[Rfam]
This 54-nucleotide RNA from Labeo rohita belongs to the Rfam family "UnaL2 LINE 3' element". The family's consensus secondary structure is taken from published work. Taxonomically the source falls in Labeo (Eukaryota, Opisthokonta, Vertebrata, Teleostomi). The eel long interspersed element (LINE) UnaL2 and its partner short interspersed element (SINE) share a conserved 3' tail containing a stem-loop that is critical for their retrotransposition. Presumably, the first step of retrotransposition is the recognition of their 3' tails by UnaL2-encoded reverse transcriptase. The solution structure of a 17-nucleotide RNA derived from the 3' tail of UnaL2 was determined by NMR. It is annotated as a cis-regulatory element.
RNA sequence: UGUAUUCCCAUUUGUAAGUCGCUUUGGAUAAAAGCGUCUGCUAAAUGAAAAAAU
Numbered sequence: 001u002g003u004a005u006u007c008c009c010a011u012u013u014g015u016a017a018g019u020c021g022c023u024u025u026g027g028a029u030a031a032a033a034g035c036g037u038c039u040g041c042u043a044a045a046u047g048a049a050a051a052a053a054u
Stems, first nucleotide, its partner, number of pairs: 013043001014041003020036006